[Rfam]
Description
Shown here is a 144-nucleotide RNA from Anolis carolinensis, a member of the family "Small nucleolar RNA SNORD94". The sequence is in the family's curated seed alignment. The family has 21 seed sequences and 802 matches in Rfam 15.1. The base pairs follow the family's consensus structure, which was predicted with RNAalifold. Rfam links the family to the GO terms nucleolus and RNA processing. The family's RNA type in Rfam is C/D-box small nucleolar RNA.
RNA sequence: GCAGCAAUGAUGAUUGGCGCAGGGGUACGGACCUCAGCUAGAUCAUGGGAGCUGAGUGUGAGUUUUCAGUGUCUGGCGUCGCUCGCAUGUGGCUUGCUUCCUGGACAGUGGCUCACACGAGAAUGUUGCCUUAUGCUGAGCUGC
Numbered sequence: 001g002c003a004g005c006a007a008u009g010a011u012g013a014u015u016g017g018c019g020c021a022g023g024g025g026u027a028c029g030g031a032c033c034u035c036a037g038c039u040a041g042a043u044c045a046u047g048g049g050a051g052c053u054g055a056g057u058g059u060g061a062g063u064u065u066u067c068a069g070u071g072u073c074u075g076g077c078g079u080c081g082c083u084c085g086c087a088u089g090u091g092g093c094u095u096g097c098u099u100c101c102u103g104g105a106c107a108g109u110g111g112c113u114c115a116c117a118c119g120a121g122a123a124u125g126u127u128g129c130c131u132u133a134u135g136c137u138g139a140g141c142u143g144c
Stems, first nucleotide, its partner, number of pairs: 001144005